[Rfam]
RNA: Chlorobi-RRM RNA
Organism: Prosthecochloris aestuarii
RNA sequence: AUUAGUCAAUGGUUGACUGACCGCAUUCAAAUAAUUUUGUGCUUUUGGUUGUUUGUCUGCGCUUCUUUCUAU
Dot-bracket structure: .((((((((...)))))))).((((..(((((((((..........)))))))))..))))...........
Numbered sequence: 001a002u003u004a005g006u007c008a009a010u011g012g013u014u015g016a017c018u019g020a021c022c023g024c025a026u027u028c029a030a031a032u033a034a035u036u037u038u039g040u041g042c043u044u045u046u047g048g049u050u051g052u053u054u055g056u057c058u059g060c061g062c063u064u065c066u067u068u069c070u071a072u
Stems, first nucleotide, its partner, number of pairs: 002020008022061004028055009